[Rfam]
RNA: Small nucleolar RNA SNORA71
RNA sequence: CCCUGCAUUCAGAAGUGGUCCUGAGCUGCCUGUGUCCUAGUCACUGGUAGGGCAGGGAGAGGAAUUGCUCAACGUGUUUCCCCAUGUUUGCAGGGUCCGCUCCUGUCGCUGCCGGACCCUGGAGCUUUCCCACA
Numbered sequence: 001c002c003c004u005g006c007a008u009u010c011a012g013a014a015g016u017g018g019u020c021c022u023g024a025g026c027u028g029c030c031u032g033u034g035u036c037c038u039a040g041u042c043a044c045u046g047g048u049a050g051g052g053c054a055g056g057g058a059g060a061g062g063a064a065u066u067g068c069u070c071a072a073c074g075u076g077u078u079u080c081c082c083c084a085u086g087u088u089u090g091c092a093g094g095g096u097c098c099g100c101u102c103c104u105g106u107c108g109c110u111g112c113c114g115g116a117c118c119c120u121g122g123a124g125c126u127u128u129c130c131c132a133c134a
Base pairs, nucleotide, nucleotide: 001057002056003055004054005053006052008050009049014045015044016043017042018041019040023037025035026034067131071128072127074125075124086117087116088115089114090113091111092110093109095107